[Rfam]
RNA: Selenocysteine insertion sequence 1
Organism: Coturnix japonica
Nucleotides: 065
Stems, first nucleotide, its partner, number of pairs: 002065002014050010029038003
Number, partner (000 for none) and nucleotide at each position: 001000c002065c003064a004000g005000c006000u007000c008000c009000a010000u011000g012000a013000u014050g015049g016048u017047c018046u019045g020044c021043c022042u023041u024000g025000a026000a027000g028000c029038c030037a031036g032000c033000u034000u035000g036031c037030u038029g039000g040000u041023g042022g043021g044020g045019c046018a047017g048016a049015c050014c051000u052000g053000a054000a055000g056000a057000u058000u059000u060000a061000g062000c063000g064003u065002g